This 142-nucleotide sequence from Brachypodium distachyon belongs to the Rfam family "MIR7725 microRNA precursor family". Rfam 15.1 lists 30 matches to the family in 16 species. The source organism's lineage runs through Eukaryota, Streptophytina, Tracheophyta, Magnoliopsida and Brachypodium.
[Rfam]
RNA sequence: AUCUUGGCGAACUAGGGAGAUGGUUUUCGCUAUGCUCCACCUCAUAUCUGACUGAAAUAGAAUUUUGUUCUUCCAUGAUGUAAUUUAGUCAAAUAAGAGGAGACAAGACAUAGUGAAAACCAUAUUCCUAGCUCGCCAUGGC
Numbered sequence: 001a002u003c004u005u006g007g008c009g010a011a012c013u014a015g016g017g018a019g020a021u022g023g024u025u026u027u028c029g030c031u032a033u034g035c036u037c038c039a040c041c042u043c044a045u046a047u048c049u050g051a052c053u054g055a056a057a058u059a060g061a062a063u064u065u066u067g068u069u070c071u072u073c074c075a076u077g078a079u080g081u082a083a084u085u086u087a088g089u090c091a092a093a094u095a096a097g098a099g100g101a102g103a104c105a106a107g108a109c110a111u112a113g114u115g116a117a118a119a120c121c122a123u124a125u126u127c128c129u130a131g132c133u134c135g136c137c138a139u140g141g142c
Stems, first nucleotide, its partner, number of pairs: 002141002005138006012131007020123015035107002040100004045095003049091008058082002062079003066075002
The family's consensus secondary structure was predicted with RNAalifold.